Rfam assigns this 101-nucleotide RNA from Jeotgalibacillus sp. R-1-5s-1 to the family "Purine riboswitch aptamer". Rfam links the family to the GO term purine nucleobase biosynthetic process. Pairs were carried over by alignment from the consensus structure, which is taken from published work.
RNA sequence: GAUUAAUUGAAUGAACGACCUCAUAUAAAGUCGGGAAUAUGGCCCGAAAGUUUCUACCCUGCACCGUAAAUGACAGGACUAUGAGGGAAAGCACCAGCAGA
Numbered sequence: 001g002a003u004u005a006a007u008u009g010a011a012u013g014a015a016c017g018a019c020c021u022c023a024u025a026u027a028a029a030g031u032c033g034g035g036a037a038u039a040u041g042g043c044c045c046g047a048a049a050g051u052u053u054c055u056a057c058c059c060u061g062c063a064c065c066g067u068a069a070a071u072g073a074c075a076g077g078a079c080u081a082u083g084a085g086g087g088a089a090a091g092c093a094c095c096a097g098c099a100g101a
Base pairs, nucleotide, nucleotide: 019086020085021084022083023082024081025080031047032046033045034044035043058077059076060075061074062072063071
The match comes from Rfam's covariance-model search (76 bits).
The literature on the family includes a 2003 paper in Cell by Mandal et al., "Riboswitches Control Fundamental Biochemical Pathways in Bacillus subtilis and Other Bacteria".